RNA sequence: CUGCCUCUGGAAAGUGGGUCCACGGCCACGGCUUGGGCCCCGCCGAAGGUGCAAGCUCGCGUGCGCGAGUGAAGCUCUCAGGCGCCCGGGUACUCGGGCACGGACAGAGGGGGAGGG
Numbered sequence: 001c002u003g004c005c006u007c008u009g010g011a012a013a014g015u016g017g018g019u020c021c022a023c024g025g026c027c028a029c030g031g032c033u034u035g036g037g038c039c040c041c042g043c044c045g046a047a048g049g050u051g052c053a054a055g056c057u058c059g060c061g062u063g064c065g066c067g068a069g070u071g072a073a074g075c076u077c078u079c080a081g082g083c084g085c086c087c088g089g090g091u092a093c094u095c096g097g098g099c100a101c102g103g104a105c106a107g108a109g110g111g112g113g114a115g116g117g
Stems, first nucleotide, its partner, number of pairs: 002112001004110006016040007042083003045079002049077001051075001055070004